RNA sequence: GAGUUCCUCCAAGCCAUUCUGCAACUCAGUGCCAAAGCGGGAUGAAAACCGUUCUGAGAGGCGUCGGCUUUCGGCAGUGGAAGCUGCCGGAACGUCCGCAUUGGGGAAAAGCGCCGGGGAUACCCUGCGUCAGUGCCCUGUGAAACCGGUGCGAACCGGCGACGGAAUGUUGAGAGACAGAAAAUGCAGUGCUGUGCCGGAGGAACGCGAACCAAGGCGCAGUUUCUGCCGCCGGCAAACAGACGCCCUCCCGGAAGGAGGGAAUAACCCGGAAUGCCGCAGGGUGGUGCCUGCAGGAGAGCGAUCGGGAUCAUGAGCGCCCGAUCCUUUACGGGAAGACCCUGCGCCGGUUUCCAGUGAAGCCCCGAAAGGGGUGUAUAAGACGGAACACUGGCCCAUGUAGCGGAAUGGAGAAAGUCUCAUCUUCCAGCUUGCGACAUCUGAUCAACCAUCGCUUAUUGCCGGAAGAUCCGUGAAUGGCAGAGGUAACCAGUCCUCUUUGGGAACAGCGGUGAAAACCGCAGGAUACGCGGACGGGAGUCGCUGCCCGUCAACCGGCCGUAUUCUCCCAGUGGCUGAACAGGUUCGAAGUUCCGGUCGGUACCGUGAAAGCGGGCAGGAUGGUUUGGAGGAAC
Numbered sequence: 001g002a003g004u005u006c007c008u009c010c011a012a013g014c015c016a017u018u019c020u021g022c023a024a025c026u027c028a029g030u031g032c033c034a035a036a037g038c039g040g041g042a043u044g045a046a047a048a049c050c051g052u053u054c055u056g057a058g059a060g061g062c063g064u065c066g067g068c069u070u071u072c073g074g075c076a077g078u079g080g081a082a083g084c085u086g087c088c089g090g091a092a093c094g095u096c097c098g099c100a101u102u103g104g105g106g107a108a109a110a111g112c113g114c115c116g117g118g119g120a121u122a123c124c125c126u127g128c129g130u131c132a133g134u135g136c137c138c139u140g141u142g143a144a145a146c147c148g149g150u151g152c153g154a155a156c157c158g159g160c161g162a163c164g165g166a167a168u169g170u171u172g173a174g175a176g177a178c179a180g181a182a183a184a185u186g187c188a189g190u191g192c193u194g195u196g197c198c199g200g201a202g203g204a205a206c207g208c209g210a211a212c213c214a215a216g217g218c219g220c221a222g223u224u225u226c227u228g229c230c231g232c233c234g235g236c237a238a239a240c241a242g243a244c245g246c247c248c249u250c251c252c253g254g255a256a257g258g259a260g261g262g263a264a265u266a267a268c269c270c271g272g273a274a275u276g277c278c279g280c281a282g283g284g285u286g287g288u289g290c291c292u293g294c295a296g297g298a299g300a301g302c303g304a305u306c307g308g309g310a311u312c313a314u315g316a317g318c319g320c321c322c323g324a325u326c327c328u329u330u331a332c333g334g335g336a337a338g339a340c341c342c343u344g345c346g347c348c349g350g351u352u353u354c355c356a357g358u359g360a361a362g363c364c365c366c367g368a369a370a371g372g373g374g375u376g377u378a379u380a381a382g383a384c385g386g387a388a389c390a391c392u393g394g395c396c397c398a399u400g401u402a403g404c405g406g407a408a409u410g411g412a413g414a415a416a417g418u419c420u421c422a423u424c425u426u427c428c429a430g431c432u433u434g435c436g437a438c439a440u441c442u443g444a445u446c447a448a449c450c451a452u453c454g455c456u457u458a459u460u461g462c463c464g465g466a467a468g469a470u471c472c473g474u475g476a477a478u479g480g481c482a483g484a485g486g487u488a489a490c491c492a493g494u495c496c497u498c499u500u501u502g503g504g505a506a507c508a509g510c511g512g513u514g515a516a517a518a519c520c521g522c523a524g525g526a527u528a529c530g531c532g533g534a535c536g537g538g539a540g541u542c543g544c545u546g547c548c549c550g551u552c553a554a555c556c557g558g559c560c561g562u563a564u565u566c567u568c569c570c571a572g573u574g575g576c577u578g579a580a581c582a583g584g585u586u587c588g589a590a591g592u593u594c595c596g597g598u599c600g601g602u603a604c605c606g607u608g609a610a611a612g613c614g615g616g617c618a619g620g621a622u623g624g625u626u627u628g629g630a631g632g633a634a635c
Stems, first nucleotide, its partner, number of pairs: 007632002010629001012627002015624001018621003025058005037052004060193005089137002092134002097129003103125003138165004146159005168179004200599001203595001205593001211586001213584001217577001220393003224388005230382001231351006247261004268335004277297002279294004286341003352413005362375005397479001403474005461559004483499001485497002501571003504522001524567003532560001533552003537548002604615004
RNA: ROOL RNA